Record summary
The family of this 241-nucleotide sequence from Planktothrix tepida is "HNH endonuclease-associated RNA and ORF (HEARO) RNA". The family has 139 seed sequences and 952 matches in Rfam 15.1. By type it is a non-coding RNA gene. NCBI's taxonomy places the organism under Bacteria, Cyanobacteriota, Cyanophyceae, Planktothrix, Planktothrix tepida.
[Rfam]
RNA sequence: GUCAGCACCCCGCUCUAAAGAGAUGGGGCUAUGGGCGGAGCGCAGGCACUGCCAACAUUGCCUCUAACUUUAGAUAGUUGACCAGCCUGAGUCCGCAACGGACUACGUUACCUGAGUCAUGAUACCCACGAAUGCGACGCUAGUUUGUGGCUCUAUCGUUGACCAUUAAACAGUCUUACGAGGGGUAAGACAGUGUGGUUAGCCUAACAAGCUCAGAUAACAUUGGCGAAGCGAACUUUAC
Numbered sequence: 001g002u003c004a005g006c007a008c009c010c011c012g013c014u015c016u017a018a019a020g021a022g023a024u025g026g027g028g029c030u031a032u033g034g035g036c037g038g039a040g041c042g043c044a045g046g047c048a049c050u051g052c053c054a055a056c057a058u059u060g061c062c063u064c065u066a067a068c069u070u071u072a073g074a075u076a077g078u079u080g081a082c083c084a085g086c087c088u089g090a091g092u093c094c095g096c097a098a099c100g101g102a103c104u105a106c107g108u109u110a111c112c113u114g115a116g117u118c119a120u121g122a123u124a125c126c127c128a129c130g131a132a133u134g135c136g137a138c139g140c141u142a143g144u145u146u147g148u149g150g151c152u153c154u155a156u157c158g159u160u161g162a163c164c165a166u167u168a169a170a171c172a173g174u175c176u177u178a179c180g181a182g183g184g185g186u187a188a189g190a191c192a193g194u195g196u197g198g199u200u201a202g203c204c205u206a207a208c209a210a211g212c213u214c215a216g217a218u219a220a221c222a223u224u225g226g227c228g229a230a231g232c233g234a235a236c237u238u239u240a241c
Stems, first nucleotide, its partner, number of pairs: 001082006007075001009028002011025002014021002085227003089223001090104005107221004112216006122156002126150008134237001138233004158203009170194002173191007